Nuclear RNase P: a 329-nucleotide sequence from Trichechus manatus. The match comes from Rfam's covariance-model search (263 bits). It is annotated as a ribozyme. The source organism's lineage runs through Eukaryota, Metazoa, Craniata, Vertebrata and Trichechus manatus. The literature on the family includes a 1998 paper in Annu Rev Biochem by Frank and Pace, "Ribonuclease P: unity and diversity in a tRNA processing ribozyme". Gene Ontology terms of the family: ribonuclease P complex, tRNA processing and ribonuclease P activity.

RNA sequence: GACGGAGGGAAGCUCAUCAGUGGGGCCACGAACUGAGUGCACGCGUCACUCUAUACUUGUCCCUUGGGAAGGUCUGAGACUAGGGCCACAAGCGGCCCUAACAGGGCCCUCCCUGAGUUGUGGGGAGGUGAGUUCCCAGAAAACGGGUCUCCGCGCGCGGGUAGACUGGGCAGGAGAAGCCGUGGACUCCACCCCCGGGAGGGGCGCGGUGGAUGCCUCCUUCGCGGGAGCUUGGAACAGACUCACGGCCAGCAAAGUGAGUUCAAUGGCUGAGGUGAGGUAUCCCGUACGGGGGCCUCAUAACCCAAUUCAGACUACUCUCCCCCGUC
Numbered sequence: 001g002a003c004g005g006a007g008g009g010a011a012g013c014u015c016a017u018c019a020g021u022g023g024g025g026c027c028a029c030g031a032a033c034u035g036a037g038u039g040c041a042c043g044c045g046u047c048a049c050u051c052u053a054u055a056c057u058u059g060u061c062c063c064u065u066g067g068g069a070a071g072g073u074c075u076g077a078g079a080c081u082a083g084g085g086c087c088a089c090a091a092g093c094g095g096c097c098c099u100a101a102c103a104g105g106g107c108c109c110u111c112c113c114u115g116a117g118u119u120g121u122g123g124g125g126a127g128g129u130g131a132g133u134u135c136c137c138a139g140a141a142a143a144c145g146g147g148u149c150u151c152c153g154c155g156c157g158c159g160g161g162u163a164g165a166c167u168g169g170g171c172a173g174g175a176g177a178a179g180c181c182g183u184g185g186a187c188u189c190c191a192c193c194c195c196c197g198g199g200a201g202g203g204g205c206g207c208g209g210u211g212g213a214u215g216c217c218u219c220c221u222u223c224g225c226g227g228g229a230g231c232u233u234g235g236a237a238c239a240g241a242c243u244c245a246c247g248g249c250c251a252g253c254a255a256a257g258u259g260a261g262u263u264c265a266a267u268g269g270c271u272g273a274g275g276u277g278a279g280g281u282a283u284c285c286c287g288u289a290c291g292g293g294g295g296c297c298u299c300a301u302a303a304c305c306c307a308a309u310u311c312a313g314a315c316u317a318c319u320c321u322c323c324c325c326c327g328u329c
Base pairs, nucleotide, nucleotide: 001329002328003327004326008323009322010321013274014273015272016271018269022064023063024062025061035051036050037049038048039047040045074313075312076311077310078309084250085249086248087247094108095107096106097105098104109127110126111125112124113123114122128246129245130244131243132242133241134240149230150229151228152227275301276300277299278298279297280296281295